[Rfam]
RNA sequence: UCCGACAAAGGCAAACCCUCCGAAAGGGUGGGGCGCAAAACCACGGGCCUAAGGUGUAGCUAGGGUAGCCGGGUUGCCGAGA
Numbered sequence: 001u002c003c004g005a006c007a008a009a010g011g012c013a014a015a016c017c018c019u020c021c022g023a024a025a026g027g028g029u030g031g032g033g034c035g036c037a038a039a040a041c042c043a044c045g046g047g048c049c050u051a052a053g054g055u056g057u058a059g060c061u062a063g064g065g066u067a068g069c070c071g072g073g074u075u076g077c078c079g080a081g082a
Stems, first nucleotide, its partner, number of pairs: 001082001003079002011036002016031002019028003034068001039075004044071003047066003

c-di-GMP-I-GGC riboswitch aptamer: an 82-nucleotide sequence from Desulforamulus reducens. Rfam links the family to the GO term cyclic-di-GMP binding. Clan: c-di-GMP_I riboswitch clan.